[Rfam]
Nucleotides: 142
Stems, first nucleotide, its partner, number of pairs: 020052008079136004091123007101115004
Number, partner (000 for none) and nucleotide at each position: 001000a002000c003000c004000c005000c006000a007000u008000g009000a010000u011000a012000u013000u014000a015000a016000g017000c018000c019000g020052g021051c022050a023049g024048a025047c026046g027045c028000u029000u030000g031000u032000a033000a034000u035000u036000u037000a038000a039000c040000c041000a042000g043000c044000g045027g046026c047025g048024u049023c050022u051021g052020u053000g054000a055000c056000u057000a058000u059000g060000a061000c062000u063000g064000g065000g066000a067000a068000c069000a070000g071000u072000a073000a074000a075000g076000c077000c078000g079136c080135u081134g082133a083000u084000g085000u086000g087000u088000g089000u090000a091123u092122g093121u094120u095119g096118g097117a098000a099000u100000u101115g102114c103113g104112c105000u106000u107000u108000a109000u110000c111000u112104g113103c114102g115101c116000a117097u118096c119095u120094g121093a122092c123091a124000a125000a126000g127000a128000u129000u130000u131000a132000u133082u134081c135080a136079g137000a138000c139000u140000a141000c142000a
Shown here is a 142-nucleotide sequence from Drosophila grimshawi, a member of the family "Small nucleolar RNA snoR639/H1".
The sequence is in the family's curated seed alignment.
snoR639 or snoH1 belongs to the H/ACA class of snoRNAs which are thought to guide the sites of modification of uridines to pseudouridines. snoH1 is found in an intron of the mfl gene in Drosophila.